The record is a 100-nucleotide RNA sequence from Alicyclobacillus sp. SO9, which matches "TPP riboswitch aptamer (THI element)" in Rfam. Lineage of the source: Bacteria > Bacillota > Caryophanales > Alicyclobacillaceae > Alicyclobacillus. Pairs were carried over by alignment from the consensus structure, which is taken from published work.

[Rfam]
RNA sequence: UGGAGCCACUAGGGGAGCAGUAGCUGAGACAAGGAGGUAUCCUUGAACCCUCGUACCUGACCUGGAUAAUACCAGCGGAGGAAAGUGGCGGCGUACACCA
Number, nucleotide and partner (000 for none) at each position: 001u000002g000003g000004a000005g000006c088007c087008a086009c085010u084011a051012g050013g049014g048015g000016a000017g024018c023019a000020g000021u000022a000023g018024c017025u000026g000027a000028g000029a000030c000031a044032a043033g042034g041035a040036g000037g000038u000039a000040u035041c034042c033043u032044u031045g000046a000047a000048c014049c013050c012051u011052c000053g000054u000055a000056c081057c080058u079059g000060a000061c000062c075063u074064g073065g072066a000067u000068a000069a000070u000071a000072c065073c064074a063075g062076c000077g000078g000079a058080g057081g056082a000083a000084a010085g009086u008087g007088g006089c000090g000091g000092c000093g000094u000095a000096c000097a000098c000099c000100a000